[Rfam]
RNA sequence: CUGCUCACUGUGACGGGAGCCACGCCAAUUCUUACCGCGGUAAUAGAAUAGCAUAGUUUCUAUCACCGGGUGAAAAUUCGGCUCGGAUCUUUUAACGGAC
Numbered sequence: 001c002u003g004c005u006c007a008c009u010g011u012g013a014c015g016g017g018a019g020c021c022a023c024g025c026c027a028a029u030u031c032u033u034a035c036c037g038c039g040g041u042a043a044u045a046g047a048a049u050a051g052c053a054u055a056g057u058u059u060c061u062a063u064c065a066c067c068g069g070g071u072g073a074a075a076a077u078u079c080g081g082c083u084c085g086g087a088u089c090u091u092u093u094a095a096c097g098g099a100c
Stems, first nucleotide, its partner, number of pairs: 016090003020086002024082003027078004032073005038068001040066002043063003
Shown here is a 100-nucleotide RNA from Caenorhabditis latens, a member of the family "mir-36 microRNA precursor family".